Notes: This 75-nucleotide sequence from Clupea harengus belongs to the Rfam family "mir-196 microRNA precursor family". Its family is annotated with RISC complex and gene silencing by miRNA in the Gene Ontology. Taxonomically the source falls in Clupea (Eukaryota, Eumetazoa, Teleostomi, Clupeidae). It scores 74 bits against the family's covariance model.
RNA sequence: UGCGUGAUUUAGGUAGUUUCAUGUUGUUGGGCUUUGGCUUUUAACUCCACAACACGAAACUGUCUUGAUUGCCUC
Numbered sequence: 001u002g003c004g005u006g007a008u009u010u011a012g013g014u015a016g017u018u019u020c021a022u023g024u025u026g027u028u029g030g031g032c033u034u035u036g037g038c039u040u041u042u043a044a045c046u047c048c049a050c051a052a053c054a055c056g057a058a059a060c061u062g063u064c065u066u067g068a069u070u071g072c073c074u075c
Stems, first nucleotide, its partner, number of pairs: 004072006011065009022054006029047003